Rfam assigns this 156-nucleotide sequence from Populus tomentosa to the family "MIR2912 microRNA precursor family". NCBI's taxonomy places the organism under Eukaryota, Streptophyta, Euphyllophyta, Magnoliopsida, Populus. Rfam 15.1 lists 15,051 matches to the family in 15 species. Its family is annotated with RISC complex and miRNA-mediated post-transcriptional gene silencing in the Gene Ontology.
RNA sequence: UCUAGAACUCAAGAUAUGGGCUGAACACUGAACAGUGUCUGGGCUGCAGAAUAUAUUCGGACUUCUUCGUUGUUCCUACAAUUUGGGCUUCAAAACAGCCUUUAUAAAUCUUGGGCUCCACAUGAGAGUUGUAGGCCUAUGUCUUAGCUUUCCAUC
Numbered sequence: 001u002c003u004a005g006a007a008c009u010c011a012a013g014a015u016a017u018g019g020g021c022u023g024a025a026c027a028c029u030g031a032a033c034a035g036u037g038u039c040u041g042g043g044c045u046g047c048a049g050a051a052u053a054u055a056u057u058c059g060g061a062c063u064u065c066u067u068c069g070u071u072g073u074u075c076c077u078a079c080a081a082u083u084u085g086g087g088c089u090u091c092a093a094a095a096c097a098g099c100c101u102u103u104a105u106a107a108a109u110c111u112u113g114g115g116c117u118c119c120a121c122a123u124g125a126g127a128g129u130u131g132u133a134g135g136c137c138u139a140u141g142u143c144u145u146a147g148c149u150u151u152c153c154a155u156c
Stems, first nucleotide, its partner, number of pairs: 003154001005152003008147002011145010021134003025130001027129003035123003041119003045115001048112002051109002059100002062098002069091001072088003